[Rfam]
RNA sequence: GCCGAGUUGGGUAGCAUUCGCUUGUAACUCAAACGAGGGCAUCAAGGUAAUGGGACUUGGCUCAAUUUCAUAUGGUAGGGCUGCAGGUUGUAGUUUAUUGGCUUGGCCAUUCCAAACUGAGAGUUUGGCUAAGUGGGUUAGGUGAAGGCCUGGUCCAAAUAGCCCCUGAAGAAGAAGGAGCCGUGUUAGGCUGGCUUCACAGAGCAGCGAAUACCUCCCGCUCUCGACAAUAGAAGGAUAAUAAGUUGGGGCAUCCUUGGUACAUCAUUACACUGUGGGGUGAGCUCAGUCGGUCUAUCAACUUU
Numbered sequence: 001g002c003c004g005a006g007u008u009g010g011g012u013a014g015c016a017u018u019c020g021c022u023u024g025u026a027a028c029u030c031a032a033a034c035g036a037g038g039g040c041a042u043c044a045a046g047g048u049a050a051u052g053g054g055a056c057u058u059g060g061c062u063c064a065a066u067u068u069c070a071u072a073u074g075g076u077a078g079g080g081c082u083g084c085a086g087g088u089u090g091u092a093g094u095u096u097a098u099u100g101g102c103u104u105g106g107c108c109a110u111u112c113c114a115a116a117c118u119g120a121g122a123g124u125u126u127g128g129c130u131a132a133g134u135g136g137g138u139u140a141g142g143u144g145a146a147g148g149c150c151u152g153g154u155c156c157a158a159a160u161a162g163c164c165c166c167u168g169a170a171g172a173a174g175a176a177g178g179a180g181c182c183g184u185g186u187u188a189g190g191c192u193g194g195c196u197u198c199a200c201a202g203a204g205c206a207g208c209g210a211a212u213a214c215c216u217c218c219c220g221c222u223c224u225c226g227a228c229a230a231u232a233g234a235a236g237g238a239u240a241a242u243a244a245g246u247u248g249g250g251g252c253a254u255c256c257u258u259g260g261u262a263c264a265u266c267a268u269u270a271c272a273c274u275g276u277g278g279g280g281u282g283a284g285c286u287c288a289g290u291c292g293g294u295c296u297a298u299c300a301a302c303u304u305u
Stems, first nucleotide, its partner, number of pairs: 001040003004023004009018002028037003044304003048300001050298004056292001058288003061284004066279001068278005075271003078263001080261004086255001089253002098249008107237002110235003114231001118226007127164005134157010166171001174217002177214001184209003191202003
Description: Shown here is a 305-nucleotide sequence from Carnegiea gigantea, a member of the family "Plant signal recognition particle RNA". It scores 149 bits against the family's covariance model. For this family Rfam cites "Towards the structure of the mammalian signal recognition particle" (Wild et al., Curr Opin Struct Biol, 2002).